[Rfam]
RNA: small nucleolar RNA snoR134
Organism: Aegilops tauschii
RNA sequence: UUGCAUGAUGCUAACCCCGGGCUUGUCGGACGGAUCUCGGUCCUCUGUGAUGAAGGAAAGCCCCAAUGCUGUGCUAGAUCCAAAACCGCCGUUCAGUGUUGCAGGCCGCGACACUACGCGUGAAUGAGCAGCUUGUGUCAGAGUAACGGAUACAUUC
Numbered sequence: 001u002u003g004c005a006u007g008a009u010g011c012u013a014a015c016c017c018c019g020g021g022c023u024u025g026u027c028g029g030a031c032g033g034a035u036c037u038c039g040g041u042c043c044u045c046u047g048u049g050a051u052g053a054a055g056g057a058a059a060g061c062c063c064c065a066a067u068g069c070u071g072u073g074c075u076a077g078a079u080c081c082a083a084a085a086c087c088g089c090c091g092u093u094c095a096g097u098g099u100u101g102c103a104g105g106c107c108g109c110g111a112c113a114c115u116a117c118g119c120g121u122g123a124a125u126g127a128g129c130a131g132c133u134u135g136u137g138u139c140a141g142a143g144u145a146a147c148g149g150a151u152a153c154a155u156u157c
Stems, first nucleotide, its partner, number of pairs: 003074005010069002019063005024057001026053003089149005097140002100137006108129002